[Rfam]
RNA sequence: UCAAAAAAGUGGAGGAUUGGGUCUGCACUGAGUGUUGACUAAGUGAGAUUCUCAUUCCUCCAUUUCGCUGCC
Numbered sequence: 001u002c003a004a005a006a007a008a009g010u011g012g013a014g015g016a017u018u019g020g021g022u023c024u025g026c027a028c029u030g031a032g033u034g035u036u037g038a039c040u041a042a043g044u045g046a047g048a049u050u051c052u053c054a055u056u057c058c059u060c061c062a063u064u065u066c067g068c069u070g071c072c
Base pairs, nucleotide, nucleotide: 008065009064010062011061012060013059014058015057016056017054022048023047026045027044028043029042
RNA: mir-1175 microRNA precursor family
Organism: Enterobius vermicularis